[Rfam]
RNA sequence: AUAAUGAUACACCCGCAUGGUGCGGUUCACUCAUAAGAAUGAGAAUGGCUGAAAUGCCAGUGG
Number, nucleotide and partner (000 for none) at each position: 001a000002u000003a000004a000005u000006g000007a000008u000009a000010c000011a000012c060013c025014c024015g023016c022017a000018u000019g000020g000021u000022g016023c015024g014025g013026u045027u044028c043029a000030c041031u000032c000033a000034u000035a000036a000037g000038a000039a000040u000041g030042a000043g028044a027045a026046u059047g058048g057049c000050u000051g000052a000053a000054a000055u000056g000057c048058c047059a046060g012061u000062g000063g000
RNA: pemK RNA
Organism: bacterium 1XD42-54